[Rfam]
A member of the RNA family "mir-148/mir-152 microRNA precursor family" from Clupea harengus, 75 nucleotides long. Its family is annotated with RISC complex and miRNA-mediated post-transcriptional gene silencing in the Gene Ontology. The match comes from Rfam's covariance-model search (76 bits). On this family, see Lagos-Quintana et al., Curr Biol 2002: "Identification of tissue-specific microRNAs from mouse".
RNA sequence: UCCAGGUAAAGUUCUGUGAUCCACCCAGACUCUGAGUGUGUGUGCAGUCAGUGCAUUACAGAACUUUGCCUUGUG
Numbered sequence: 001u002c003c004a005g006g007u008a009a010a011g012u013u014c015u016g017u018g019a020u021c022c023a024c025c026c027a028g029a030c031u032c033u034g035a036g037u038g039u040g041u042g043u044g045c046a047g048u049c050a051g052u053g054c055a056u057u058a059c060a061g062a063a064c065u066u067u068g069c070c071u072u073g074u075g
Stems, first nucleotide, its partner, number of pairs: 004071013022053003028049004